Shown here is a 265-nucleotide sequence from bacterium 1xD8-6, a member of the family "Bacterial large signal recognition particle RNA". By type it is a non-coding RNA gene. About the family: The signal recognition particle (SRP) is a universally conserved ribonucleoprotein involved in the co-translational targeting of proteins to membranes. Its Rfam clan is "SRP clan".
RNA sequence: CCGUGCUAGCCGGGGAGUUAGCGGUGCCCUGUACCUGCAAUCCGCUAUAGCAGGGGUGAUGUUCUGUUUCGGAGUUAUUAUCGGCAAAGCUGCCCAAUGUAUGAGGUGUUGACGUUUUGGUCUUGCGCAAUGGAAACUCAUGAACCGUGUCAGGAGGGGAACCUAGCAGCACUAAGUGAGACCUUUCGUGUGCCGCAAGGUUGCCGGAGCCGAGCUGUCAGCGUUGGUAACGUUUGGGGUGAUUUCUUCAACACAGAGCGCACGG
Numbered sequence: 001c002c003g004u005g006c007u008a009g010c011c012g013g014g015g016a017g018u019u020a021g022c023g024g025u026g027c028c029c030u031g032u033a034c035c036u037g038c039a040a041u042c043c044g045c046u047a048u049a050g051c052a053g054g055g056g057u058g059a060u061g062u063u064c065u066g067u068u069u070c071g072g073a074g075u076u077a078u079u080a081u082c083g084g085c086a087a088a089g090c091u092g093c094c095c096a097a098u099g100u101a102u103g104a105g106g107u108g109u110u111g112a113c114g115u116u117u118u119g120g121u122c123u124u125g126c127g128c129a130a131u132g133g134a135a136a137c138u139c140a141u142g143a144a145c146c147g148u149g150u151c152a153g154g155a156g157g158g159g160a161a162c163c164u165a166g167c168a169g170c171a172c173u174a175a176g177u178g179a180g181a182c183c184u185u186u187c188g189u190g191u192g193c194c195g196c197a198a199g200g201u202u203g204c205c206g207g208a209g210c211c212g213a214g215c216u217g218u219c220a221g222c223g224u225u226g227g228u229a230a231c232g233u234u235u236g237g238g239g240u241g242a243u244u245u246c247u248u249c250a251a252c253a254c255a256g257a258g259c260g261c262a263c264g265g
Stems, first nucleotide, its partner, number of pairs: 001265006009057003012030004017025003034054005062258006071249004077243006085236003091229002095226006103219002105216003114210008122199006128190002131188005137180005147172004155164003